[Rfam]
RNA sequence: GCCACAUGAUGUUUUCAUUAUGAGAAAGGAGCGCUUUGCGCUGUGAUGACCUUUAUCUAUCACCCUUCACUGAUGGCU
Number, nucleotide and partner (000 for none) at each position: 001g077002c076003c075004a074005c000006a000007u000008g000009a000010u000011g000012u000013u000014u000015u000016c000017a000018u000019u000020a000021u000022g000023a000024g000025a000026a000027a000028g000029g000030a000031g041032c040033g039034c038035u000036u000037u000038g034039c033040g032041c031042u000043g000044u000045g000046a000047u000048g000049a000050c000051c000052u000053u000054u000055a000056u000057c000058u000059a000060u000061c000062a000063c000064c000065c000066u000067u000068c000069a000070c000071u000072g000073a000074u004075g003076g002077c001078u000
The record is a 78-nucleotide sequence from Chrysochloris asiatica, which matches "Small nucleolar RNA SNORD83" in Rfam. A search with the family's covariance model found it, with a score of 94 bits. Gene Ontology terms of the family: RNA processing and nucleolus. The organism belongs to Chrysochloris, within Eukaryota.